[Rfam]
RNA: Small nucleolar RNA SNORD18
RNA sequence: UGGAUGUGAUGAUCGCAAUUGGUCCGUGUUUCUGAGCGGCUUUCCAGCUAUCUGAAGUAAUACCAGCGAGUGUUGCCUUCUGAUCCA
Numbered sequence: 001u002g003g004a005u006g007u008g009a010u011g012a013u014c015g016c017a018a019u020u021g022g023u024c025c026g027u028g029u030u031u032c033u034g035a036g037c038g039g040c041u042u043u044c045c046a047g048c049u050a051u052c053u054g055a056a057g058u059a060a061u062a063c064c065a066g067c068g069a070g071u072g073u074u075g076c077c078u079u080c081u082g083a084u085c086c087a
Stems, first nucleotide, its partner, number of pairs: 001087004